A member of the RNA family "SmY spliceosomal RNA" from Panagrolaimus sp. ES5, 73 nucleotides long.
It scores 43 bits against the family's covariance model.
[Rfam]
RNA sequence: UGCGCAUUUUUAUUUUUCACAGGGUCUCUCAUGAGUCCCAGAGUAAAAUUUUUGGGACCUCCGCAAGGAGGUA
Numbered sequence: 001u002g003c004g005c006a007u008u009u010u011u012a013u014u015u016u017u018c019a020c021a022g023g024g025u026c027u028c029u030c031a032u033g034a035g036u037c038c039c040a041g042a043g044u045a046a047a048a049u050u051u052u053u054g055g056g057a058c059c060u061c062c063g064c065a066a067g068g069a070g071g072u073a
Stems, first nucleotide, its partner, number of pairs: 022039003026035003057072006
For this family Rfam cites "A novel family of C. elegans snRNPs contains proteins associated with trans-splicing" (MacMorris et al., RNA, 2007). By type it is a spliceosomal small nuclear RNA.